[Rfam]
RNA sequence: UAAAAACCGUAGCAAAUCAGCCGAAAGUCUGAGACGCAAAGCUAAAGGGCCUGUAAAAUGGCAGCCAGUUGCAACG
Numbered sequence: 001u002a003a004a005a006a007c008c009g010u011a012g013c014a015a016a017u018c019a020g021c022c023g024a025a026a027g028u029c030u031g032a033g034a035c036g037c038a039a040a041g042c043u044a045a046a047g048g049g050c051c052u053g054u055a056a057a058a059u060g061g062c063a064g065c066c067a068g069u070u071g072c073a074a075c076g
Stems, first nucleotide, its partner, number of pairs: 012037002017032004022027001040070004047066002049062003
Rfam assigns this 76-nucleotide RNA sequence from Eubacterium sp. CAG:146 to the family "c-di-GMP-I riboswitch aptamer". A search with the family's covariance model found it, with a score of 52 bits. Lineage of the source: Bacteria > Bacillati > Eubacteriales > Eubacteriaceae > Eubacterium.